Shown here is a 249-nucleotide part of an RNA from Eptatretus burgeri, a member of the family "Eukaryotic large subunit ribosomal RNA".
Its Rfam clan is "LSU clan".
The source organism's lineage runs through Eukaryota, Opisthokonta, Craniata, Myxiniformes and Eptatretus.
The match comes from Rfam's covariance-model search (3008 bits).
RNA sequence: CGGACGGGGGCUGGCGGUGCGCCUCGGCCCGAAGCGGAACGGAUGCGUCCGGUCCGUGGCUCGGCUCGAGGGCGCGGACCGUUGCAGGCCAGCCCGGCGGCAAGAGCCCGGGCGAUCGUCGCUCGAGGAGACACCGUCGCGGCGGCCUCGGGAAACAGCGCGCGCCGGCUCGGCGUGCCCCCUCGGGGGCUCCAGCGCGCUCGUUGCAACGGCCCGUGGGCUCCCCGUUCGACCCGUCUUGAAACACGG
Numbered sequence: 001c002g003g004a005c006g007g008g009g010g011c012u013g014g015c016g017g018u019g020c021g022c023c024u025c026g027g028c029c030c031g032a033a034g035c036g037g038a039a040c041g042g043a044u045g046c047g048u049c050c051g052g053u054c055c056g057u058g059g060c061u062c063g064g065c066u067c068g069a070g071g072g073c074g075c076g077g078a079c080c081g082u083u084g085c086a087g088g089c090c091a092g093c094c095c096g097g098c099g100g101c102a103a104g105a106g107c108c109c110g111g112g113c114g115a116u117c118g119u120c121g122c123u124c125g126a127g128g129a130g131a132c133a134c135c136g137u138c139g140c141g142g143c144g145g146c147c148u149c150g151g152g153a154a155a156c157a158g159c160g161c162g163c164g165c166c167g168g169c170u171c172g173g174c175g176u177g178c179c180c181c182c183u184c185g186g187g188g189g190c191u192c193c194a195g196c197g198c199g200c201u202c203g204u205u206g207c208a209a210c211g212g213c214c215c216g217u218g219g220g221c222u223c224c225c226c227g228u229u230c231g232a233c234c235c236g237u238c239u240u241g242a243a244a245c246a247c248g249g
Base pairs, nucleotide, nucleotide: 001231002230003229004228005227006226007225008224009223010222011220012219017075020074021073022072023071024069025068026067079212080211081210082209083208084207085206086205087204234249235248236247237246